[Rfam]
Nucleotides: 062
Base pairs, nucleotide, nucleotide: 012044013043014042025039026038027037028036029035049061050060051059052058
Number, partner (000 for none) and nucleotide at each position: 001000a002000c003000u004000u005000a006000a007000g008000g009000a010000u011000g012044g013043c014042c015000g016000a017000u018000u019000a020000a021000g022000a023000a024000c025039g026038u027037g028036a029035c030000g031000u032000c033000c034000u035029g036028u037027c038026a039025c040000a041000c042014g043013g044012c045000a046000c047000u048000c049061g050060a051059a052058c053000a054000u055000c056000c057000u058052g059051u060050u061049c062000u